[Rfam]
Shown here is a 59-nucleotide RNA from Quang Binh virus, a member of the family "Insect-Specific Flavivirus 3' UTR repeats Ra". It is annotated as a cis-regulatory element. The literature on the family includes a 2007 paper in Virology by Hoshino et al., "Genetic characterization of a new insect flavivirus isolated from Culex pipiens mosquito in Japan". Rfam describes the family as follows. 3' UTR in insect specific flavivirus families present three to four repeats of conserved element Ra.
RNA sequence: GGCAGCGCAAGGAAGGUGGGCUGGAUGCCGCCUUAGGUGGUGACGACACCUCGCCCCCA
Numbered sequence: 001g002g003c004a005g006c007g008c009a010a011g012g013a014a015g016g017u018g019g020g021c022u023g024g025a026u027g028c029c030g031c032c033u034u035a036g037g038u039g040g041u042g043a044c045g046a047c048a049c050c051u052c053g054c055c056c057c058c059a
Stems, first nucleotide, its partner, number of pairs: 005054003013034006035051005